RNA sequence: UGCAGCCUCGUCAAAUUCGGUGCCACCUCUGCCAUGGUGCGCGCUGGCCCAAGGGCUGCCACAGCAUCACCUGUGCUUCAUGGGCCCCACGUCCCUGCUGUGGGAUGGCGGGGAUAAAAACAUGCCACGCACAUGG
Numbered sequence: 001u002g003c004a005g006c007c008u009c010g011u012c013a014a015a016u017u018c019g020g021u022g023c024c025a026c027c028u029c030u031g032c033c034a035u036g037g038u039g040c041g042c043g044c045u046g047g048c049c050c051a052a053g054g055g056c057u058g059c060c061a062c063a064g065c066a067u068c069a070c071c072u073g074u075g076c077u078u079c080a081u082g083g084g085c086c087c088c089a090c091g092u093c094c095c096u097g098c099u100g101u102g103g104g105a106u107g108g109c110g111g112g113g114a115u116a117a118a119a120a121c122a123u124g125c126c127a128c129g130c131a132c133a134u135g136g
Stems, first nucleotide, its partner, number of pairs: 002059004018046006024039004073128003076124001078122001085113004
Overview:
The record is a 136-nucleotide RNA from Bambusicola thoracicus, which matches "Small nucleolar RNA SNORA5" in Rfam. Taxonomically the source falls in Bambusicola (Eukaryota, Craniata, Sarcopterygii, Tetrapoda). About the family: ACA5 is a member of the H/ACA class of snoRNA that guide the sites of modification of uridines to pseudouridines. The family is grouped with related families in Rfam's "SNORA5 clan". Rfam 15.1 lists 2,226 matches to the family in 629 species. It is annotated as an H/ACA-box small nucleolar RNA. It scores 62 bits against the family's covariance model. Its family is annotated with RNA processing and nucleolus in the Gene Ontology.